This 69-nucleotide sequence from Prevotella sp. ne3005 belongs to the Rfam family "Bacteroidetes FopS (family of paralogous sRNAs)". Rfam describes the family as follows. The RNA-binding protein RbpB and BTncRNA_FopS sRNA are involved in the post-transcription regulation of polysaccharide utilisation loci (PUL). FopS sRNAs function as post-transcriptional repressors by binding to the vicinity of the start codon of the first mRNA of target PUL polycistrons, typically corresponding to the cognate SusC homolog, impeding translation of the respective glycan transporter. Rfam 15.1 lists 822 matches to the family in 178 species.

Nucleotides: 069
Base pairs, nucleotide, nucleotide: 042059043058044057045056046055047054048053
Number, partner (000 for none) and nucleotide at each position: 001000g002000u003000g004000u005000u006000u007000u008000u009000c010000a011000u012000a013000g014000u015000a016000u017000u018000a019000g020000a021000u022000u023000u024000a025000a026000g027000g028000u029000u030000a031000a032000c033000a034000a035000a036000g037000g038000u039000u040000u041000g042059g043058g044057g045056g046055c047054u048053c049000g050000g051000c052000g053048g054047a055046g056045c057044u058043c059042c060000u061000u062000u063000u064000u065000u066000u067000u068000a069000c